RNA sequence: CUCUUAUCCAGAGAGGCUGAGGGACCGGCCCUGUGACGCCUCGGCAACCAAACUGGCUGCUGGUGAUCGCGUGCAUUGACCGAUCGUCGACGGAGACCGUCGGCAGCGCACACCAGGUCACGACAGACAAGUUAUGGUGCCAACUCCGGCAGAUUAGAUUCUGGAAGAUGAGAG
Number, nucleotide and partner (000 for none) at each position: 001c174002u173003c172004u171005u170006a169007u168008c167009c000010a000011g000012a000013g042014a041015g040016g039017c038018u000019g000020a000021g031022g030023g029024a000025c149026c148027g147028g146029c023030c022031c021032u000033g000034u000035g000036a000037c000038g017039c016040c015041u014042c013043g141044g140045c139046a138047a000048c137049c136050a000051a133052a132053c131054u130055g000056g000057c000058u000059g000060c000061u000062g000063g000064u000065g000066a000067u000068c000069g000070c000071g000072u000073g000074c000075a000076u000077u000078g000079a000080c000081c000082g000083a000084u000085c000086g000087u000088c000089g000090a000091c000092g000093g000094a000095g000096a000097c000098c000099g000100u000101c000102g000103g000104c000105a000106g000107c000108g000109c000110a000111c000112a000113c000114c000115a000116g000117g000118u000119c000120a000121c000122g000123a000124c000125a000126g000127a000128c000129a000130a054131g053132u052133u051134a000135u000136g049137g048138u046139g045140c044141c043142a000143a000144c000145u166146c028147c027148g026149g025150c163151a162152g161153a160154u000155u000156a000157g000158a000159u000160u153161c152162u151163g150164g000165a000166a145167g008168a007169u006170g005171a004172g003173a002174g001
SAM riboswitch aptamer (S box leader): a 174-nucleotide RNA sequence from an Anaerolineae bacterium. The SAM riboswitch is found upstream of a number of genes which code for proteins involved in methionine or cysteine biosynthesis in Gram-positive bacteria. The base pairs follow the family's consensus structure, which is taken from published work. It scores 82 bits against the family's covariance model.